[Rfam]
RNA sequence: GGCCUACCUCUUUGGGGCAAUCGAUGGCAGAGCCCUGUGAUCGAUUGCCCCAAAGAGGUAGGCC
Numbered sequence: 001g002g003c004c005u006a007c008c009u010c011u012u013u014g015g016g017g018c019a020a021u022c023g024a025u026g027g028c029a030g031a032g033c034c035c036u037g038u039g040a041u042c043g044a045u046u047g048c049c050c051c052a053a054a055g056a057g058g059u060a061g062g063c064c
Base pairs, nucleotide, nucleotide: 001064002063003062004061005060006059007058008057009056010055011054012053013052014051015050016049017048018047019046020045021044022043023042024041025040027038028037029036030035
A member of the RNA family "mir-9242 microRNA precursor family" from Myotis davidii, 64 nucleotides long. It scores 67 bits against the family's covariance model. Gene Ontology terms of the family: RISC complex and miRNA-mediated post-transcriptional gene silencing.